ZMP/ZTP riboswitch aptamer (pfl RNA motif): an 86-nucleotide RNA from Paraburkholderia megapolitana.
[Rfam]
RNA sequence: GCGCCUCUACGUGACUGGCGAAGAAGGAAGAUGGAUCACCAUCGGGAAGCGUAGACGCCGCAACGCCGUUCGCCUGGGCAUCUUGA
Number, nucleotide and partner (000 for none) at each position: 001g000002c000003g058004c057005c000006u055007c054008u053009a052010c051011g050012u049013g000014a000015c046016u045017g074018g073019c072020g071021a070022a000023g000024a000025a000026g000027g000028a000029a000030g000031a042032u041033g040034g039035a000036u000037c000038a000039c034040c033041a032042u031043c000044g000045g016046g015047a000048a000049g012050c011051g010052u009053a008054g007055a006056c000057g004058c003059c000060g000061c000062a000063a081064c000065g079066c078067c077068g000069u000070u021071c020072g019073c018074c017075u000076g000077g067078g066079c065080a000081u063082c000083u000084u000085g000086a000